The record is a 45-nucleotide RNA sequence from Hucho hucho, which matches "Histone 3' UTR stem-loop" in Rfam. Rfam classes the family as a cis-regulatory element. The mRNAs of metazoan histone genes lack a poly-A tail. 3' end processing occurs at a site between a highly conserved stem-loop (modelled by this family) and a purine rich region around 20 nts downstream (the histone downstream element, or HDE). The stem-loop is bound by a 31 kDa stem-loop binding protein (SLBP - also termed the histone hairpin binding protein, or HBP).

[Rfam]
RNA sequence: CCAAAGGCUCUUUUAAGAGCCACCCACAUCCGCAUAAAAAGGACC
Dot-bracket structure: .....((((((....))))))........................
Numbered sequence: 001c002c003a004a005a006g007g008c009u010c011u012u013u014u015a016a017g018a019g020c021c022a023c024c025c026a027c028a029u030c031c032g033c034a035u036a037a038a039a040a041g042g043a044c045c
Stems, first nucleotide, its partner, number of pairs: 006021006
About this RNA:
It scores 40 bits against the family's covariance model.